RNA sequence: GUCGUAUAAAGAUGUAUUAGAUGCAAGACAAUCUAGCAUUUCCCUUUACGACAUUGUAAUCAAAUUAGAAGUUCAAACAACAGAAAUUGUUGAAGGGUUAAGAAUUGAAACGAUUUGAGUUUGGAUGGAAGAGGUUAGCCGUAUGACUUUGUGUUGAAAAACACUAAAAACAAUCUCGAAUGGCAAUUUCUAAAAUUUCGUUAUUUUGAGUUACGGCUUU
Numbered sequence: 001g002u003c004g005u006a007u008a009a010a011g012a013u014g015u016a017u018u019a020g021a022u023g024c025a026a027g028a029c030a031a032u033c034u035a036g037c038a039u040u041u042c043c044c045u046u047u048a049c050g051a052c053a054u055u056g057u058a059a060u061c062a063a064a065u066u067a068g069a070a071g072u073u074c075a076a077a078c079a080a081c082a083g084a085a086a087u088u089g090u091u092g093a094a095g096g097g098u099u100a101a102g103a104a105u106u107g108a109a110a111c112g113a114u115u116u117g118a119g120u121u122u123g124g125a126u127g128g129a130a131g132a133g134g135u136u137a138g139c140c141g142u143a144u145g146a147c148u149u150u151g152u153g154u155u156g157a158a159a160a161a162c163a164c165u166a167a168a169a170a171c172a173a174u175c176u177c178g179a180a181u182g183g184c185a186a187u188u189u190c191u192a193a194a195a196u197u198u199c200g201u202u203a204u205u206u207u208g209a210g211u212u213a214c215g216g217c218u219u220u
Stems, first nucleotide, its partner, number of pairs: 001052006008045001010041006018035005023029001071126008085115007096106002099103001132149005138217006144170001151164005175210006181203004

This 220-nucleotide RNA belongs to the Rfam family "IS605-orfB-I RNA". It is annotated as a small RNA.